[Rfam]
RNA sequence: CGGCUUUUAUCGCUGAGUCUAUCGUCGUCAGACGAAAGAGCGGGGGAACCAAUCGGAUCCGGAUCGGGCUGCGCAAGCAUUCCGAAGCAACGCAACGCCGGUAUCCACGGGGUGAAUCCUUCCCAUCGGGAAGGUAGGGCUACUCUUGAGCCCGAAUCCGACAGCUAACCUCGUAAGCGUACCGAGAGAGGCGAC
Numbered sequence: 001c002g003g004c005u006u007u008u009a010u011c012g013c014u015g016a017g018u019c020u021a022u023c024g025u026c027g028u029c030a031g032a033c034g035a036a037a038g039a040g041c042g043g044g045g046g047a048a049c050c051a052a053u054c055g056g057a058u059c060c061g062g063a064u065c066g067g068g069c070u071g072c073g074c075a076a077g078c079a080u081u082c083c084g085a086a087g088c089a090a091c092g093c094a095a096c097g098c099c100g101g102u103a104u105c106c107a108c109g110g111g112g113u114g115a116a117u118c119c120u121u122c123c124c125a126u127c128g129g130g131a132a133g134g135u136a137g138g139g140c141u142a143c144u145c146u147u148g149a150g151c152c153c154g155a156a157u158c159c160g161a162c163a164g165c166u167a168a169c170c171u172c173g174u175a176a177g178c179g180u181a182c183c184g185a186g187a188g189a190g191g192c193g194a195c
Base pairs, nucleotide, nucleotide: 011179012178013177014176018039019038020037040174041173042172043171044170045169050109110159111158112157118134119133120132121131137153138152139151140150